[Rfam]
RNA sequence: CGGGCAGUAUCGCUUGCGAACUGCACCUGAAAUCUAUGGCAAUUUUGCAGUAAAUACAAUUUGAUAGCCGACAUCUGCCUUGAUCUACUUAUAUGACAGGGACGGAGGA
Numbered sequence: 001c002g003g004g005c006a007g008u009a010u011c012g013c014u015u016g017c018g019a020a021c022u023g024c025a026c027c028u029g030a031a032a033u034c035u036a037u038g039g040c041a042a043u044u045u046u047g048c049a050g051u052a053a054a055u056a057c058a059a060u061u062u063g064a065u066a067g068c069c070g071a072c073a074u075c076u077g078c079c080u081u082g083a084u085c086u087a088c089u090u091a092u093a094u095g096a097c098a099g100g101g102a103c104g105g106a107g108g109a
Stems, first nucleotide, its partner, number of pairs: 002027002004024005010019002075105003078101005084096002

Background: pan motif: a 109-nucleotide RNA sequence from Planococcus massiliensis. The base pairs follow the family's consensus structure, which is taken from published work. Lineage of the source: Bacteria > Bacillati > Caryophanales > Caryophanaceae > Planococcus.